[Rfam]
RNA: S10-Clostridia ribosomal protein leader
RNA sequence: UGAGAGCGUUGAAGUAAGAGGUUGCUACUUGAAAAGUAAGUAGGUUUUCUUAUGGAGCGAUGUCUAGUUCAAGAAACUGACGACAA
Numbered sequence: 001u002g003a004g005a006g007c008g009u010u011g012a013a014g015u016a017a018g019a020g021g022u023u024g025c026u027a028c029u030u031g032a033a034a035a036g037u038a039a040g041u042a043g044g045u046u047u048u049c050u051u052a053u054g055g056a057g058c059g060a061u062g063u064c065u066a067g068u069u070c071a072a073g074a075a076a077c078u079g080a081c082g083a084c085a086a
Stems, first nucleotide, its partner, number of pairs: 014053003018049004025043007061085004067081001069080003